mir-2816 microRNA precursor family: a 49-nucleotide RNA sequence from Bombyx mori.
RNA sequence: CUCAACUGUCCUCGAGUGAGGUACAAUAUCAGUUUGGGGAAAAUUUGAU
Numbered sequence: 001c002u003c004a005a006c007u008g009u010c011c012u013c014g015a016g017u018g019a020g021g022u023a024c025a026a027u028a029u030c031a032g033u034u035u036g037g038g039g040a041a042a043a044u045u046u047g048a049u
Stems, first nucleotide, its partner, number of pairs: 002048004009040008017031003021027002
The match comes from Rfam's covariance-model search (52 bits). Rfam links the family to the GO terms RISC complex and miRNA-mediated post-transcriptional gene silencing. The source organism's lineage runs through Eukaryota, Mandibulata, Neoptera, Bombycidae and Bombyx.